The family of this 123-nucleotide RNA from Actinia tenebrosa is "U5 spliceosomal RNA".
RNA sequence: UCACUCUGGUUUCCCUUCAAAACGUAUAAAUCUUUCGCCUUUUACUAAAGAUUUCCGUGGAGGGAAACAAGUUAACGGGUCUUUAAACUAAUUUUUGUGUUUGCUCUGCUUAUGCAGCGGGGC
Numbered sequence: 001u002c003a004c005u006c007u008g009g010u011u012u013c014c015c016u017u018c019a020a021a022a023c024g025u026a027u028a029a030a031u032c033u034u035u036c037g038c039c040u041u042u043u044a045c046u047a048a049a050g051a052u053u054u055c056c057g058u059g060g061a062g063g064g065a066a067a068c069a070a071g072u073u074a075a076c077g078g079g080u081c082u083u084u085a086a087a088c089u090a091a092u093u094u095u096u097g098u099g100u101u102u103g104c105u106c107u108g109c110u111u112a113u114g115c116a117g118c119g120g121g122g123c
Stems, first nucleotide, its partner, number of pairs: 003080004009068011028054008099123001104122006

Pairs were carried over by alignment from the consensus structure, which is taken from published work.